The family of this 93-nucleotide sequence from Theobroma umbraticum is "Small nucleolar RNA snoR8a".
The base pairs follow the family's consensus structure, which was predicted with WAR.
A search with the family's covariance model found it, with a score of 52 bits.
Lineage of the source: Eukaryota > Euphyllophyta > Malvales > Byttnerioideae > Theobroma.
Gene Ontology terms of the family: RNA processing and nucleolus.
[Rfam]
RNA sequence: GAGUUAGCGAUGAUUAUAAAAAUAAUUUUUCAUUCUAACUUGUUUAAUUUGGGCAUGAAAAACCUUUUAUUACACCCAUAGAAUUUGAGCUAU
Numbered sequence: 001g002a003g004u005u006a007g008c009g010a011u012g013a014u015u016a017u018a019a020a021a022a023u024a025a026u027u028u029u030u031c032a033u034u035c036u037a038a039c040u041u042g043u044u045u046a047a048u049u050u051g052g053g054c055a056u057g058a059a060a061a062a063c064c065u066u067u068u069a070u071u072a073c074a075c076c077c078a079u080a081g082a083a084u085u086u087g088a089g090c091u092a093u
Stems, first nucleotide, its partner, number of pairs: 003093002006091002